[Rfam]
RNA sequence: AUAAAUGCUAUGAAGAGAAGAAGUAGGGCUAGAUUUUAUUUAACAGAGAGUUCCAGUUUGGUGAAAUGGAAUAAAUUGAUUUAGUUUGAAUACAUCUCAGAGCACUAUCUCUGAAAGAUAACAACCAUUAAGAGAUAUCGGAUUAGUACACGUUAUAGUACACGAGUAUAUGUAAUUGUACUCUAAGAGAUUAAUAUCGUGAGAUAUUGAUGAACUAAGGUGGUAACACGUAAGCAAUGCUUUCGUCCUUUUA
Numbered sequence: 001a002u003a004a005a006u007g008c009u010a011u012g013a014a015g016a017g018a019a020g021a022a023g024u025a026g027g028g029c030u031a032g033a034u035u036u037u038a039u040u041u042a043a044c045a046g047a048g049a050g051u052u053c054c055a056g057u058u059u060g061g062u063g064a065a066a067u068g069g070a071a072u073a074a075a076u077u078g079a080u081u082u083a084g085u086u087u088g089a090a091u092a093c094a095u096c097u098c099a100g101a102g103c104a105c106u107a108u109c110u111c112u113g114a115a116a117g118a119u120a121a122c123a124a125c126c127a128u129u130a131a132g133a134g135a136u137a138u139c140g141g142a143u144u145a146g147u148a149c150a151c152g153u154u155a156u157a158g159u160a161c162a163c164g165a166g167u168a169u170a171u172g173u174a175a176u177u178g179u180a181c182u183c184u185a186a187g188a189g190a191u192u193a194a195u196a197u198c199g200u201g202a203g204a205u206a207u208u209g210a211u212g213a214a215c216u217a218a219g220g221u222g223g224u225a226a227c228a229c230g231u232a233a234g235c236a237a238u239g240c241u242u243u244c245g246u247c248c249u250u251u252u253a
Base pairs, nucleotide, nucleotide: 007103008102015098016097017096018095026087027086028085029084030083031082039075040074041073050072051071052070053069054068055067106137107136108135109134110133111132112131139152140151190211191210192209193208194207195206196205217250218249219248220247228246229245230244232242233241234240